The record is a 91-nucleotide sequence from Weissella soli, which matches "TPP riboswitch aptamer (THI element)" in Rfam. Vitamin B(1) in its active form thiamin pyrophosphate (TPP) is an essential coenzyme that is synthesised by coupling of pyrimidine and thiazole moieties in bacteria. The source organism's lineage runs through Bacteria, Bacillota, Bacilli, Lactobacillales and Weissella.
RNA sequence: AAAUUUUACUAGGGGCACCAGCAAUGGUUGAGAUGAACCCUUUGAACCUGAUCAAAUUAACAUUUGCGUAGGGAAGUAAGUUUAAUAGAUG
Numbered sequence: 001a002a003a004u005u006u007u008a009c010u011a012g013g014g015g016c017a018c019c020a021g022c023a024a025u026g027g028u029u030g031a032g033a034u035g036a037a038c039c040c041u042u043u044g045a046a047c048c049u050g051a052u053c054a055a056a057u058u059a060a061c062a063u064u065u066g067c068g069u070a071g072g073g074a075a076g077u078a079a080g081u082u083u084a085a086u087a088g089a090u091g
Stems, first nucleotide, its partner, number of pairs: 006079005011041004016035001017028004047072004053066004